The family of this 55-nucleotide RNA from Boswellia sacra is "Plastid-psbA-4 3UTR RNA". The family's RNA type in Rfam is cis-regulatory element. Lineage of the source: Eukaryota > Streptophyta > Tracheophyta > malvids > Boswellia. The family's consensus secondary structure was predicted with LocARNA.
RNA sequence: GAAAAUAACGGAGCAAUACCCACCCUCUUGCAAGAGGGUGGGUAUUGCUCCGUUA
Numbered sequence: 001g002a003a004a005a006u007a008a009c010g011g012a013g014c015a016a017u018a019c020c021c022a023c024c025c026u027c028u029u030g031c032a033a034g035a036g037g038g039u040g041g042g043u044a045u046u047g048c049u050c051c052g053u054u055a
Stems, first nucleotide, its partner, number of pairs: 007054012022039002025036004